[Rfam]
RNA: SAH (S-adenosyl-L-homocysteine) riboswitch aptamer
RNA sequence: GGCUCCAAGGAGCGUUGCAGCAUGGCUAAACGUCAUGCCAGGCUUGGACCAUCUUCACCCGCAACGGCGCUCACGUUAC
Numbered sequence: 001g002g003c004u005c006c007a008a009g010g011a012g013c014g015u016u017g018c019a020g021c022a023u024g025g026c027u028a029a030a031c032g033u034c035a036u037g038c039c040a041g042g043c044u045u046g047g048a049c050c051a052u053c054u055u056c057a058c059c060c061g062c063a064a065c066g067g068c069g070c071u072c073a074c075g076u077u078a079c
Stems, first nucleotide, its partner, number of pairs: 002050001004048005021037006